[Rfam]
RNA sequence: CAAGCAAGCCAUCUUAUCGCUUCCGGUGUAAGCAGGAAGAGGAAAGUCCGGGCAGCGUAGAGCACCGUGCUACCUAACGGGUAGGCAGUCAACUGGCGACGGUUGGCUGACAGCCAGUACCACAGAAAAGAUACCGCUUUCCUUCGGGGAAAGUAAGGGUGAAAAGGUAGGGUAAGAGCCUACCGCUCAGGGGGUGACUUCUGAGGCAGGGUAAACCUCACGGGCUGAAAGACCAAAUAAACCAGCGGUGUCCGCAAGGACCGAAGGGCUGCUCGUCCGGUGCUGGUGGGUAGGUCGUUAGAGACGGCAGGCGACUGCCGUUCUAGAUAAAUGAUAAGACUUUUUACUGGUUCGCCAGUGAAGAUGACAGAACCCGGCUUAUCGGCUUGUUUUUUAU
Numbered sequence: 001c002a003a004g005c006a007a008g009c010c011a012u013c014u015u016a017u018c019g020c021u022u023c024c025g026g027u028g029u030a031a032g033c034a035g036g037a038a039g040a041g042g043a044a045a046g047u048c049c050g051g052g053c054a055g056c057g058u059a060g061a062g063c064a065c066c067g068u069g070c071u072a073c074c075u076a077a078c079g080g081g082u083a084g085g086c087a088g089u090c091a092a093c094u095g096g097c098g099a100c101g102g103u104u105g106g107c108u109g110a111c112a113g114c115c116a117g118u119a120c121c122a123c124a125g126a127a128a129a130g131a132u133a134c135c136g137c138u139u140u141c142c143u144u145c146g147g148g149g150a151a152a153g154u155a156a157g158g159g160u161g162a163a164a165a166g167g168u169a170g171g172g173u174a175a176g177a178g179c180c181u182a183c184c185g186c187u188c189a190g191g192g193g194g195u196g197a198c199u200u201c202u203g204a205g206g207c208a209g210g211g212u213a214a215a216c217c218u219c220a221c222g223g224g225c226u227g228a229a230a231g232a233c234c235a236a237a238u239a240a241a242c243c244a245g246c247g248g249u250g251u252c253c254g255c256a257a258g259g260a261c262c263g264a265a266g267g268g269c270u271g272c273u274c275g276u277c278c279g280g281u282g283c284u285g286g287u288g289g290g291u292a293g294g295u296c297g298u299u300a301g302a303g304a305c306g307g308c309a310g311g312c313g314a315c316u317g318c319c320g321u322u323c324u325a326g327a328u329a330a331a332u333g334a335u336a337a338g339a340c341u342u343u344u345u346a347c348u349g350g351u352u353c354g355c356c357a358g359u360g361a362a363g364a365u366g367a368c369a370g371a372a373c374c375c376g377g378c379u380u381a382u383c384g385g386c387u388u389g390u391u392u393u394u395u396a397u
Stems, first nucleotide, its partner, number of pairs: 002392009011382001012339007020039005026033002044380003048377005053227004060274004065223005070084005085111001086109010112218002117216002119212003134158002136154008166184006185207001186205008231296004241287006266278004303322008